Shown here is a 105-nucleotide RNA sequence from Roseomonas indoligenes, a member of the family "TPP riboswitch aptamer (THI element)".
The base pairs follow the family's consensus structure, which is taken from published work.
The organism belongs to Roseomonas, within Bacteria.
The match comes from Rfam's covariance-model search (69 bits).
Its family is annotated with thiamine pyrophosphate binding in the Gene Ontology.
RNA sequence: GAGGACACCGGGGGGAGCCCAUACCGGGCUGAGAGGCGGGGAAACCCGCGACCCCUGGAACCUGACCCGGUUCGGACCGGCGUAGGGACGGUGCAUCCUGAGGAC
Numbered sequence: 001g002a003g004g005a006c007a008c009c010g011g012g013g014g015g016a017g018c019c020c021a022u023a024c025c026g027g028g029c030u031g032a033g034a035g036g037c038g039g040g041g042a043a044a045c046c047c048g049c050g051a052c053c054c055c056u057g058g059a060a061c062c063u064g065a066c067c068c069g070g071u072u073c074g075g076a077c078c079g080g081c082g083u084a085g086g087g088a089c090g091g092u093g094c095a096u097c098c099u100g101a102g103g104a105c
Stems, first nucleotide, its partner, number of pairs: 006093005011055004017029004036049005061086004067080004